The family of this 151-nucleotide sequence from Klebsiella oxytoca is "EFASI RNA". Rfam's curators put it in the seed alignment.
RNA sequence: UCGACUCGGUAUCGACGGCAGUGCCAGCAGAAACUGGCAAUGGAGGCGGCCUGACAGUAGUCAGCAUGGCGUUAGCCACGAACAGCUCAGAGAGCUGGGGAGCCUCGUAAGAACUCAACAUUUCGCCGCCCCGAUGCACAGAUACCAGUUG
Numbered sequence: 001u002c003g004a005c006u007c008g009g010u011a012u013c014g015a016c017g018g019c020a021g022u023g024c025c026a027g028c029a030g031a032a033a034c035u036g037g038c039a040a041u042g043g044a045g046g047c048g049g050c051c052u053g054a055c056a057g058u059a060g061u062c063a064g065c066a067u068g069g070c071g072u073u074a075g076c077c078a079c080g081a082a083c084a085g086c087u088c089a090g091a092g093a094g095c096u097g098g099g100g101a102g103c104c105u106c107g108u109a110a111g112a113a114c115u116c117a118a119c120a121u122u123u124c125g126c127c128g129c130c131c132c133g134a135u136g137c138a139c140a141g142a143u144a145c146c147a148g149u150u151g
Stems, first nucleotide, its partner, number of pairs: 002151004008146006019042002022039006043106004051064005083098001084096005